Rfam assigns this 76-nucleotide RNA sequence from Citrobacter rodentium to the family "tpke11". Rfam links the family to the GO term response to temperature stimulus. In Yersinia located in ICR upstream dnaJ (chaperone)gene. Has temperature responsive RNA structure. Rfam classes the family as a small RNA.
[Rfam]
RNA sequence: UGCAGGGUAAGUAAUCAGCACGGGCGUCGAGAUCUCUCCACGCCCGUGCUCGUAUGUGAAAGGGCUGAAAAACAAC
Numbered sequence: 001u002g003c004a005g006g007g008u009a010a011g012u013a014a015u016c017a018g019c020a021c022g023g024g025c026g027u028c029g030a031g032a033u034c035u036c037u038c039c040a041c042g043c044c045c046g047u048g049c050u051c052g053u054a055u056g057u058g059a060a061a062g063g064g065c066u067g068a069a070a071a072a073c074a075a076c
Base pairs, nucleotide, nucleotide: 005015018049019048020047021046022045023044024043025042026041029038030037031036

Taxonomically the source falls in Citrobacter rodentium (Bacteria, Gammaproteobacteria, Enterobacterales, Enterobacteriaceae). The match comes from Rfam's covariance-model search (54 bits). The literature on the family includes a 2001 paper in Curr Biol by Rivas et al., "Computational identification of noncoding RNAs in E. coli by comparative genomics".